[Rfam]
RNA sequence: CCUGGUAUAUUCCUACCAGUCCCUAUGCGGGCGUGCUUGCCACGCGCUGUGUGGUCGGUGCGAAGCCCCGUUGACAAAGGAUCGAACUGGGUCGGAUUGGUGACAUGAAGACCCCUCAGGAAAUCCUCUCCUGUUAAGGCC
Numbered sequence: 001c002c003u004g005g006u007a008u009a010u011u012c013c014u015a016c017c018a019g020u021c022c023c024u025a026u027g028c029g030g031g032c033g034u035g036c037u038u039g040c041c042a043c044g045c046g047c048u049g050u051g052u053g054g055u056c057g058g059u060g061c062g063a064a065g066c067c068c069c070g071u072u073g074a075c076a077a078a079g080g081a082u083c084g085a086a087c088u089g090g091g092u093c094g095g096a097u098u099g100g101u102g103a104c105a106u107g108a109a110g111a112c113c114c115c116u117c118a119g120g121a122a123a124u125c126c127u128c129u130c131c132u133g134u135u136a137a138g139g140c141c
Stems, first nucleotide, its partner, number of pairs: 002019006027071005032062006039055005089114004098105002117133005
Background
A member of the RNA family "Group II catalytic intron D1-D4-7" from Candidatus Magnetomorum sp. HK-1, 141 nucleotides long. Gene Ontology term of the family: Group II intron splicing. Group II introns are found in rRNA, tRNA and mRNA of organelles in fungi, plants and protists, and also in mRNA in bacteria.